[Rfam]
A member of the RNA family "GcvB RNA" from Arsenophonus endosymbiont of Bemisia tabaci, 196 nucleotides long.
RNA sequence: GCUUCCUAGGCCUGAAUGAAUCGCUAAGCAGUUAAUUUAUUUAAAGUUAUUGGCUUUAUGGUUGUGAUAUUGUGUUUACAAAUUAUCUGGCUUUUCCAGGUUGAGUAGUUAAUACUACUAUUUUCACUCCUAUACAUUUACCUUGUCUGUCCAUAGUUAUUUUGACGCGCGGCAAUUUAUUGCGGCGUUUUUUUAU
Numbered sequence: 001g002c003u004u005c006c007u008a009g010g011c012c013u014g015a016a017u018g019a020a021u022c023g024c025u026a027a028g029c030a031g032u033u034a035a036u037u038u039a040u041u042u043a044a045a046g047u048u049a050u051u052g053g054c055u056u057u058a059u060g061g062u063u064g065u066g067a068u069a070u071u072g073u074g075u076u077u078a079c080a081a082a083u084u085a086u087c088u089g090g091c092u093u094u095u096c097c098a099g100g101u102u103g104a105g106u107a108g109u110u111a112a113u114a115c116u117a118c119u120a121u122u123u124u125c126a127c128u129c130c131u132a133u134a135c136a137u138u139u140a141c142c143u144u145g146u147c148u149g150u151c152c153a154u155a156g157u158u159a160u161u162u163u164g165a166c167g168c169g170c171g172g173c174a175a176u177u178u179a180u181u182g183c184g185g186c187g188u189u190u191u192u193u194u195a196u
Base pairs, nucleotide, nucleotide: 009055010054011053012052015051016050021049023047024046025045030041031040032039083103085101086100087099088098089097090096104119105118106117107116108115109114135164136163167188168187169186170185172183173182
Annotation: For this family Rfam cites "A small RNA regulates multiple ABC transporter mRNAs by targeting C/A-rich elements inside and upstream of ribosome-binding sites" (Sharma et al., Genes Dev, 2007). Pairs were carried over by alignment from the consensus structure, which is taken from published work. From the family's description: The gcvB gene encodes a small untranslated RNA involved in expression of the dipeptide and oligopeptide transport systems in Escherichia coli. Included several unknown homologues in alignment (Bateman A pers obs). It base-pairs with SorC. This interaction triggers the degradation of GcvB by RNase E, alleviating the GcvB-mediated mRNA repression of other amino acid-related transport and metabolic genes. The match comes from Rfam's covariance-model search (88 bits).